[Rfam]
RNA sequence: GCAUUCCUUCGGGGCAGGGUGAAAUUCCCUACCGACGGUGAUGGCGGGUCUUGAGAUUUCCAGCAAUAGCGGAAACCGAGGCCGGCACAAGUCCGUGACCCGUAUGCGGGAUCUGCCCGCAUAUGGCUGAGCCGGUGCGAUUCCGGGACCGACAGUAUAGUCUGGAUGGGAGAAGGAGACG
Numbered sequence: 001g002c003a004u005u006c007c008u009u010c011g012g013g014g015c016a017g018g019g020u021g022a023a024a025u026u027c028c029c030u031a032c033c034g035a036c037g038g039u040g041a042u043g044g045c046g047g048g049u050c051u052u053g054a055g056a057u058u059u060c061c062a063g064c065a066a067u068a069g070c071g072g073a074a075a076c077c078g079a080g081g082c083c084g085g086c087a088c089a090a091g092u093c094c095g096u097g098a099c100c101c102g103u104a105u106g107c108g109g110g111a112u113c114u115g116c117c118c119g120c121a122u123a124u125g126g127c128u129g130a131g132c133c134g135g136u137g138c139g140a141u142u143c144c145g146g147g148a149c150c151g152a153c154a155g156u157a158u159a160g161u162c163u164g165g166a167u168g169g170g171a172g173a174a175g176g177a178g179a180c181g
Stems, first nucleotide, its partner, number of pairs: 004178007017029003031161002033151002035096004100126005132146004153164003